The family of this 88-nucleotide RNA from Parasporobacterium paucivorans is "c-di-GMP-I riboswitch aptamer". The organism belongs to Parasporobacterium paucivorans, within Bacteria. The base pairs follow the family's consensus structure, which is taken from published work.
RNA sequence: CAAUUGAAAAAGCAAAGUCUUUGAAAGAAGAUGACGCAAAGCCGUGAGUCUAAAGCAGUUCUACUGCCAGGAUUGUCAGGUUGCCAAU
Numbered sequence: 001c002a003a004u005u006g007a008a009a010a011a012g013c014a015a016a017g018u019c020u021u022u023g024a025a026a027g028a029a030g031a032u033g034a035c036g037c038a039a040a041g042c043c044g045u046g047a048g049u050c051u052a053a054a055g056c057a058g059u060u061c062u063a064c065u066g067c068c069a070g071g072a073u074u075g076u077c078a079g080g081u082u083g084c085c086a087a088u
Base pairs, nucleotide, nucleotide: 012037013036017032018031019030020029021028022027040082041081042080043079045078046077047076048073049072050071055067056066057065058064